[Rfam]
RNA: Alphaproteobacteria transfer-messenger RNA
RNA sequence: GCCCUUUUCAUUGUCAGCUGCUGACCCUAUAUUGGGGAUGCUGCGCAAGCAGAUAUGACAAUAAACGAGCGUUGAAAUAAACCAUUCGGACCCGGGGGCGGUACCCGGCGCCUCCACCAUGAUCCGGCGACUAUGCCGAGACGGCCAAACGGCCGGAUGAUGAUGGGGGCGAAACAGGAUCGACGAGGGUGUAAAGAGCGACUUUUUGUUCGGUAUUGUACCACCGUUAUCGGGCUAAACUUGUAGUUGCAAAUGACAACUAUGCGGAAGCUCGUCUCGCUGCUUAAUUGCGGUGUGACACUUCAAAUCAAGUCCUAGAGGGUCGCACUUCUGGGCGGGGUUCGGAGGUACCUGGCAACAGAAACCUCCACU
Numbered sequence: 001g002c003c004c005u006u007u008u009c010a011u012u013g014u015c016a017g018c019u020g021c022u023g024a025c026c027c028u029a030u031a032u033u034g035g036g037g038a039u040g041c042u043g044c045g046c047a048a049g050c051a052g053a054u055a056u057g058a059c060a061a062u063a064a065a066c067g068a069g070c071g072u073u074g075a076a077a078u079a080a081a082c083c084a085u086u087c088g089g090a091c092c093c094g095g096g097g098g099c100g101g102u103a104c105c106c107g108g109c110g111c112c113u114c115c116a117c118c119a120u121g122a123u124c125c126g127g128c129g130a131c132u133a134u135g136c137c138g139a140g141a142c143g144g145c146c147a148a149a150c151g152g153c154c155g156g157a158u159g160a161u162g163a164u165g166g167g168g169g170c171g172a173a174a175c176a177g178g179a180u181c182g183a184c185g186a187g188g189g190u191g192u193a194a195a196g197a198g199c200g201a202c203u204u205u206u207u208g209u210u211c212g213g214u215a216u217u218g219u220a221c222c223a224c225c226g227u228u229a230u231c232g233g234g235c236u237a238a239a240c241u242u243g244u245a246g247u248u249g250c251a252a253a254u255g256a257c258a259a260c261u262a263u264g265c266g267g268a269a270g271c272u273c274g275u276c277u278c279g280c281u282g283c284u285u286a287a288u289u290g291c292g293g294u295g296u297g298a299c300a301c302u303u304c305a306a307a308u309c310a311a312g313u314c315c316u317a318g319a320g321g322g323u324c325g326c327a328c329u330u331c332u333g334g335g336c337g338g339g340g341u342u343c344g345g346a347g348g349u350a351c352c353u354g355g356c357a358a359c360a361g362a363a364a365c366c367u368c369c370a371c372u
Stems, first nucleotide, its partner, number of pairs: 041052004057210005067203001070200004082189002086186003092108005109171007211226004216237001218235001221233002338353004344369006
Dot-bracket structure: ........................................((((....))))....(((((.....(..((((........((..(((...(((((.......)))))(((((((.................................................)))))))............))).)).......))))..)..)))))((((.[.[..[[)))).....]].].]....................................................................................................[[[[..((((((]]]]..........))))))...